[Rfam]
Nucleotides: 308
Stems, first nucleotide, its partner, number of pairs: 004033004013024004072139006080131002082128004090107004112124004143191012159179003162175002197300004209292004225284004234278005240273003245266002248263006
Number, partner (000 for none) and nucleotide at each position: 001000u002000g003000u004033u005032u006031c007030a008000a009000a010000a011000c012000c013024c014023c015022g016021c017000a018000c019000a020000a021016g022015c023014g024013g025000u026000u027000g028000a029000u030007u031006g032005a033004g034000g035000c036000c037000c038000g039000u040000c041000a042000u043000c044000c045000g046000u047000u048000a049000g050000a051000a052000u053000a054000a055000g056000c057000a058000g059000c060000a061000u062000c063000u064000u065000c066000a067000c068000a069000c070000g071000c072139g073138g074137g075136a076135a077134c078000a079000c080131g081130c082128c083127u084126u085125g086000a087000a088000a089000c090107g091106u092105c093104g094000a095000u096000c097000a098000c099000g100000a101000a102000g103000u104093c105092g106091a107090u108000c109000u110000a111000u112124c113123c114122g115121c116000g117000c118000c119000u120000a121115g122114c123113g124112g125085c126084a127083a128082g129000c130081g131080c132000c133000c134077g135076u136075u137074c138073c139072c140000c141000g142000a143191c144190c145189g146188g147187u148186c149185g150184c151183u152182u153181c154180c155000g156000u157000c158000a159179g160178g161177c162175c163174u164000c165000u166000u167000u168000g169000a170000u171000c172000a173000a174163a175162g176000a177161g178160c179159c180154g181153g182152g183151a184150g185149c186148g187147g188146c189145c190144g191143g192000g193000c194000c195000c196000a197300g198299c199298c200297c201000g202000a203000c204000c205000c206000g207000a208000a209292c210291c211290u212289g213000g214000a215000c216000c217000a218000u219000c220000c221000a222000c223000c224000g225284c226283a227282u228281c229000c230000g231000u232000g233000c234278g235277g236276c237275g238274c239000c240273u241272c242271g243000c244000c245266g246265g247000u248263c249262u250261g251260u252259g253258c254000c255000c256000g257000a258253g259252c260251a261250c262249a263248g264000u265246c266245c267000a268000c269000u270000c271242c272241g273240a274238g275237c276236g277235c278234c279000c280000c281228g282227a283226u284225g285000c286000c287000g288000c289212c290211g291210g292209g293000a294000g295000a296000a297200g298199g299198g300197c301000a302000u303000g304000g305000a306000g307000c308000u

Shown here is a 308-nucleotide RNA sequence from Thioalkalivibrio sp. ALE28, a member of the family "mgtE ncRNA motif". By type it is a cis-regulatory element. The family's consensus secondary structure is taken from published work. Gene Ontology term of the family: regulation of gene expression.